[Rfam]
RNA sequence: UCCCGGCUCUUGGCACGAACCGGGACCAAUGAGCCUCGCUCCUGGCCCACAACCAUUGGUCCCGGUUCGUGGCAUGAACCGGGACAGAAGGAUGGCCUUUAGUCCCGGUUCCAGCCACGAACCGGGACAAAU
Dot-bracket structure: (((((........((((((.(((((((((((......................))))))))))).))))))........))))).....................((((((.......))))))........

This 132-nucleotide RNA sequence from Aegilops tauschii belongs to the Rfam family "Small nucleolar RNA SNORA57". About the family: U99 belongs to the H/ACA class of snoRNAs which are thought to guide the sites of modification of uridines to pseudouridines, the target for this family is unknown. On this family, see Vitali et al., Nucleic Acids Res 2003: "Identification of 13 novel human modification guide RNAs". It scores 40 bits against the family's covariance model. Rfam classes the family as an H/ACA-box small nucleolar RNA.